[Rfam]
RNA sequence: GUUGACAUCUUACUUGGCAGCAUUGGAUGUAAUCUCUUUUUCUAAUACUGCCUGGUAAUGAUGAUAAU
Numbered sequence: 001g002u003u004g005a006c007a008u009c010u011u012a013c014u015u016g017g018c019a020g021c022a023u024u025g026g027a028u029g030u031a032a033u034c035u036c037u038u039u040u041u042c043u044a045a046u047a048c049u050g051c052c053u054g055g056u057a058a059u060g061a062u063g064a065u066a067a068u
Stems, first nucleotide, its partner, number of pairs: 002067003006063004010058005016052005022046006
A member of the RNA family "mir-8/mir-141/mir-200 microRNA precursor family" from Polypterus senegalus, 68 nucleotides long.
Rfam links the family to the GO terms miRNA-mediated post-transcriptional gene silencing and RISC complex.
It scores 71 bits against the family's covariance model.
The family is grouped with related families in Rfam's "mir-8 microRNA precursor clan".